A member of the RNA family "sraA" from Serratia fonticola, 96 nucleotides long. Rfam classes the family as a small RNA. A reference for the family is Hershberg et al. (2003), "A survey of small RNA-encoding genes in Escherichia coli", Nucleic Acids Res. NCBI's taxonomy places the organism under Bacteria, Pseudomonadota, Enterobacterales, Yersiniaceae, Serratia. The base pairs follow the family's consensus structure, which was predicted with RNAalifold.

[Rfam]
RNA sequence: UGGAUUAUGAGUAUAUGGGGAUGAAUCUCUGACAUUCAACGGUAACAAUGUAGAGAAAAAGAAAAGGGGGAUAAAAUCCCCCUUUUACGAUUAACU
Numbered sequence: 001u002g003g004a005u006u007a008u009g010a011g012u013a014u015a016u017g018g019g020g021a022u023g024a025a026u027c028u029c030u031g032a033c034a035u036u037c038a039a040c041g042g043u044a045a046c047a048a049u050g051u052a053g054a055g056a057a058a059a060a061g062a063a064a065a066g067g068g069g070g071a072u073a074a075a076a077u078c079c080c081c082c083u084u085u086u087a088c089g090a091u092u093a094a095c096u
Stems, first nucleotide, its partner, number of pairs: 008038001010036003016032001018030003062086011